[Rfam]
RNA: mir-932 microRNA precursor family
Nucleotides: 081
Base pairs, nucleotide, nucleotide: 006074007073009071010070011069014066015065016064017063018062021059022058023057025056026055027054028053029052
Number, partner (000 for none) and nucleotide at each position: 001000c002000g003000u004000g005000g006074c007073u008000c009071u010070c011069a012000a013000u014066u015065c016064c017063g018062u019000a020000g021059u022058g023057c024000a025056u026055u027054g028053c029052a030000g031000u032000u033000u034000a035000a036000u037000a038000u039000a040000a041000u042000u043000a044000u045000c046000a047000a048000c049000a050000a051000c052029u053028g054027c055026a056025a057023g058022c059021g060000c061000u062018g063017u064016g065015g066014a067000c068000u069011u070010g071009g072000c073007a074006g075000c076000u077000c078000c079000g080000a081000u